The family of this 130-nucleotide RNA from Sagittarius serpentarius is "U11 spliceosomal RNA".
The organism belongs to Sagittarius, within Eukaryota.
RNA sequence: AAAAAGGGCUUCUGCCGUGCGUGGCACGGGGGGGCCUCCUGGCCACCCUCGCGGAAUCGACAUCAAGAGAUUUCGGAAGCACAAUUUUUGCAGUGGGGGGUCGCCGGUAACCGCUUGUUCCGGCGCCCCG
Number, nucleotide and partner (000 for none) at each position: 001a000002a000003a000004a000005a000006g000007g000008g080009c079010u078011u077012c076013u026014g025015c024016c023017g022018u000019g000020c000021g000022u017023g016024g015025c014026a013027c051028g050029g049030g048031g047032g046033g044034g043035c042036c041037u000038c000039c000040u000041g036042g035043c034044c033045a000046c032047c031048c030049u029050c028051g027052c075053g074054g073055a072056a071057u070058c069059g000060a000061c000062a000063u000064c000065a000066a000067g000068a000069g058070a057071u056072u055073u054074c053075g052076g012077a011078a010079g009080c008081a000082c000083a000084a000085u000086u000087u000088u000089u000090g000091c000092a000093g000094u000095g000096g000097g000098g128099g127100g126101u125102c000103g124104c123105c122106g121107g120108u000109a119110a118111c117112c000113g000114c000115u000116u000117g111118u110119u109120c107121c106122g105123g104124c103125g101126c100127c099128c098129c000130g000